[Rfam]
RNA: Small nucleolar RNA SNORA25
Organism: Ornithorhynchus anatinus
RNA sequence: AGGUCAUUUCAAAGAGGGUUCGUAUGGCUGUAAAACCAGCAGCCCUUAACGCGAUGACCUAAUAGGAACUCUCUACAGGUUACCACUCUCACUAAGUAGUGCACUGUGGUUUCCUCCUGAGACACAGUG
Numbered sequence: 001a002g003g004u005c006a007u008u009u010c011a012a013a014g015a016g017g018g019u020u021c022g023u024a025u026g027g028c029u030g031u032a033a034a035a036c037c038a039g040c041a042g043c044c045c046u047u048a049a050c051g052c053g054a055u056g057a058c059c060u061a062a063u064a065g066g067a068a069c070u071c072u073c074u075a076c077a078g079g080u081u082a083c084c085a086c087u088c089u090c091a092c093u094a095a096g097u098a099g100u101g102c103a104c105u106g107u108g109g110u111u112u113c114c115u116c117c118u119g120a121g122a123c124a125c126a127g128u129g
Stems, first nucleotide, its partner, number of pairs: 002059006014047007023039001026037002070122004077115003085107002090101004